[Rfam]
RNA sequence: GGAUGGAUGCCGAUGCCCGCAGAUGCAUUGCUUGCGUAGCUGAACAGAAUGAGUGAGAAAUACCUGCCGUCGACAUGCGUGCUUCUGUUUCU
Number, nucleotide and partner (000 for none) at each position: 001g092002g091003a090004u000005g088006g000007a000008u000009g000010c000011c000012g000013a000014u000015g000016c000017c000018c000019g000020c000021a000022g000023a000024u000025g000026c055027a054028u053029u052030g000031c000032u047033u046034g045035c000036g000037u000038a000039g000040c000041u000042g000043a000044a000045c034046a033047g032048a000049a000050u000051g000052a029053g028054u027055g026056a000057g000058a000059a000060a000061u000062a000063c000064c000065u000066g000067c000068c000069g000070u000071c000072g000073a000074c000075a000076u000077g000078c000079g000080u000081g000082c000083u000084u000085c000086u000087g000088u005089u000090u003091c002092u001
Rfam assigns this 92-nucleotide RNA from Propithecus coquereli to the family "Small nucleolar RNA SNORD116". The family's RNA type in Rfam is C/D-box small nucleolar RNA. Taxonomically the source falls in Propithecus (Eukaryota, Chordata, Vertebrata, Eutheria).